[Rfam]
RNA sequence: AAUAAGAUUCGGUAGGUGAGGCUACCACAGGGAUUUGGAUUUUCCUAAGAUUGCUGCCGCAACAACGUGGAGACACGAUUCGCUGGUUAGCAGGAUAUGUCGCAGAUAAGGCAUAUCUUAAUGCAAUUUAUAUGCCCUGUGAUGCUAAAGCUUGAACGAUGUUGUCACGGA
Numbered sequence: 001a002a003u004a005a006g007a008u009u010c011g012g013u014a015g016g017u018g019a020g021g022c023u024a025c026c027a028c029a030g031g032g033a034u035u036u037g038g039a040u041u042u043u044c045c046u047a048a049g050a051u052u053g054c055u056g057c058c059g060c061a062a063c064a065a066c067g068u069g070g071a072g073a074c075a076c077g078a079u080u081c082g083c084u085g086g087u088u089a090g091c092a093g094g095a096u097a098u099g100u101c102g103c104a105g106a107u108a109a110g111g112c113a114u115a116u117c118u119u120a121a122u123g124c125a126a127u128u129u130a131u132a133u134g135c136c137c138u139g140u141g142a143u144g145c146u147a148a149a150g151c152u153u154g155a156a157c158g159a160u161g162u163u164g165u166c167a168c169g170g171a
Base pairs, nucleotide, nucleotide: 006166007165008164011157013109015152016151017150020146021145022144026141027140028139029138030137031136032135050127051126052125053124054123057085059083060082066077067076068075069074093118094117095116096115099112100111101110
RNA: M-box riboswitch aptamer (ykoK leader)
Organism: Faecalimonas nexilis